[Rfam]
RNA: raiA RNA
RNA sequence: UAAAAUUAGGUUUGUGGUUGAAAGUCGAUGCCAGUCGCAGGCAAAACGAUCCACGUAAGUUAAAUAAAAAUAUUUGAUGAGCAUGGUGCGGCUUAGAAGUAAGUCCUGCCGUUAUUUAAAACGAGAGGAUUAGUAGUGAGAAGAUGAACUCUGGGUAGCGAAAAUUCCAGCAGGCGAGUGUGGGGGCAAAAACCAGGUCAACUAAUUUUA
Numbered sequence: 001u002a003a004a005a006u007u008a009g010g011u012u013u014g015u016g017g018u019u020g021a022a023a024g025u026c027g028a029u030g031c032c033a034g035u036c037g038c039a040g041g042c043a044a045a046a047c048g049a050u051c052c053a054c055g056u057a058a059g060u061u062a063a064a065u066a067a068a069a070a071u072a073u074u075u076g077a078u079g080a081g082c083a084u085g086g087u088g089c090g091g092c093u094u095a096g097a098a099g100u101a102a103g104u105c106c107u108g109c110c111g112u113u114a115u116u117u118a119a120a121a122c123g124a125g126a127g128g129a130u131u132a133g134u135a136g137u138g139a140g141a142a143g144a145u146g147a148a149c150u151c152u153g154g155g156u157a158g159c160g161a162a163a164a165u166u167c168c169a170g171c172a173g174g175c176g177a178g179u180g181u182g183g184g185g186g187c188a189a190a191a192a193c194c195a196g197g198u199c200a201a202c203u204a205a206u207u208u209u210a
Base pairs, nucleotide, nucleotide: 001210002209003208004207005206006205007204008203009202012201013200014199015195016194017193018192019191028181029180030179031041033093034092035091036090037089038088039087050086051085058078060076062074063073084188105174106173107172108171109170110123111122112121113120127167128166129165130164136159137158142152143151144150